The record is a 308-nucleotide RNA from Gossypium anomalum, which matches "Plant signal recognition particle RNA" in Rfam. The family's RNA type in Rfam is non-coding RNA gene. The match comes from Rfam's covariance-model search (198 bits). Gene Ontology terms of the family: SRP-dependent cotranslational protein targeting to membrane, signal sequence recognition and signal recognition particle, endoplasmic reticulum targeting. The base pairs follow the family's consensus structure, which is taken from published work. Taxonomically the source falls in Gossypium (Eukaryota, Euphyllophyta, Spermatophyta, eudicotyledons). The family is grouped with related families in Rfam's "SRP clan".
RNA sequence: GCCGAGCAUAGUAACGUAAGCUUGUAACUCGAGUGAGGGCUUUAAGGUAAUGGAAUACAGGAUUGAUGACUUGCUUUGUCGGAUUUCAAGUGGCUUGAGCUCUGGCUUGCCCGUACCAAGCUGUGAACUGAGCUAUGGGACUUGAGUGAAAACUCUGGGUCUCGUGGAUCCUAUAGUGGAGGGUACUGCGUCAGGCUGGCUUCACAGAGCAACGACAACCUCUCGUUCUCGGCAGUGGAAGGAUAACAGGCCUGAUCUGCUUGGGGUCCAUCUUGGCUUAGUGGGCUUACCGAUGAACCAUUACGUUA
Number, nucleotide and partner (000 for none) at each position: 001g040002c039003c038004g023005a022006g021007c020008a000009u018010a017011g000012u000013a000014a000015c000016g000017u010018a009019a000020g007021c006022u005023u004024g000025u000026a000027a000028c037029u036030c035031g000032a000033g000034u000035g030036a029037g028038g003039g002040c001041u000042u000043u308044a307045a306046g000047g304048u303049a302050a301051u300052g299053g298054a000055a000056u295057a294058c292059a000060g290061g000062a000063u000064u289065g000066a288067u000068g286069a000070c000071u284072u283073g282074c281075u280076u000077u000078g277079u276080c275081g269082g268083a267084u266085u265086u264087c263088a262089a000090g261091u259092g258093g257094c000095u000096u255097g000098a000099g000100c000101u000102c254103u000104g252105g251106c250107u249108u248109g247110c000111c242112c241113g000114u240115a000116c238117c237118a236119a000120g233121c232122u231123g230124u000125g228126a227127a226128c225129u000130g170131a169132g000133c167134u166135a165136u164137g163138g162139g161140a160141c159142u158143u157144g156145a154146g153147u152148g000149a000150a000151a000152a147153c146154u145155c000156u144157g143158g142159g141160u140161c139162u138163c137164g136165u135166g134167g133168a000169u131170c130171c176172u000173a000174u000175a000176g171177u000178g223179g222180a221181g220182g219183g000184u000185a000186c000187u000188g000189c214190g213191u212192c000193a000194g000195g000196c207197u206198g205199g000200c000201u000202u000203c000204a000205c198206a197207g196208a000209g000210c000211a000212a191213c190214g189215a000216c000217a000218a000219c182220c181221u180222c179223u178224c000225g128226u127227u126228c125229u000230c123231g122232g121233c120234a000235g000236u118237g117238g116239a000240a114241g112242g111243a000244u000245a000246a000247c109248a108249g107250g106251c105252c104253u000254g102255a096256u000257c093258u092259g091260c000261u090262u088263g087264g086265g085266g084267u083268c082269c081270a000271u000272c000273u000274u000275g080276g079277c078278u000279u000280a075281g074282u073283g072284g071285g000286c068287u000288u066289a064290c060291c000292g058293a000294u057295g056296a000297a000298c053299c052300a051301u050302u049303a048304c047305g000306u045307u044308a043